[Rfam]
RNA sequence: AUUUGAUGAUGAUAAUCCAAAGGCUUGUUUCUCAGAGACAUUCGCAGUGGCUGCCUAAGAGCUUUCGCCUUCGCCAGGCUUGAGAGCUAAUGCUGUUUUACUCCUUCCUUGGAUGUCUGAAGUU
Numbered sequence: 001a002u003u004u005g006a007u008g009a010u011g012a013u014a015a016u017c018c019a020a021a022g023g024c025u026u027g028u029u030u031c032u033c034a035g036a037g038a039c040a041u042u043c044g045c046a047g048u049g050g051c052u053g054c055c056u057a058a059g060a061g062c063u064u065u066c067g068c069c070u071u072c073g074c075c076a077g078g079c080u081u082g083a084g085a086g087c088u089a090a091u092g093c094u095g096u097u098u099u100a101c102u103c104c105u106u107c108c109u110u111g112g113a114u115g116u117c118u119g120a121a122g123u124u
Stems, first nucleotide, its partner, number of pairs: 001124001003122002061087006
RNA: Small nucleolar RNA SNORD14
Organism: Centaurea solstitialis